[Rfam]
RNA: mir-2796 microRNA precursor family
Organism: Rhynchophorus ferrugineus
RNA sequence: CUCGAGGGGUAGGGGUUUCUUUCGGCCUCCAGCAGAUAAGAAAGUUGUAGGCCGGCGGAAACUACUUGCUCUUUGAA
Numbered sequence: 001c002u003c004g005a006g007g008g009g010u011a012g013g014g015g016u017u018u019c020u021u022u023c024g025g026c027c028u029c030c031a032g033c034a035g036a037u038a039a040g041a042a043a044g045u046u047g048u049a050g051g052c053c054g055g056c057g058g059a060a061a062c063u064a065c066u067u068g069c070u071c072u073u074u075g076a077a
Stems, first nucleotide, its partner, number of pairs: 005073004010068004014063007022055007030047003